[Rfam]
RNA sequence: CUUGAUGGACCCCAGGUACAGCGGCUCGUCGCGGUCCUGGCCGUAGGUGGCCAGCACCGCCUGGGCCUC
Number, nucleotide and partner (000 for none) at each position: 001c000002u000003u000004g000005a000006u000007g000008g000009a000010c000011c000012c000013c000014a026015g025016g000017u023018a000019c000020a000021g000022c000023g017024g000025c015026u014027c000028g000029u064030c063031g000032c059033g058034g000035u000036c000037c054038u053039g052040g000041c050042c049043g048044u000045a000046g000047g000048u043049g042050g041051c000052c039053a038054g037055c000056a000057c000058c033059g032060c000061c000062u000063g030064g029065g000066c000067c000068u000069c000

Background
A member of the RNA family "ASpks TB sRNA" from Kutzneria sp. 744, 69 nucleotides long. Taxonomically the source falls in Kutzneria (Bacteria, Actinomycetota, Pseudonocardiales, Pseudonocardiaceae). Rfam classes the family as an antisense RNA.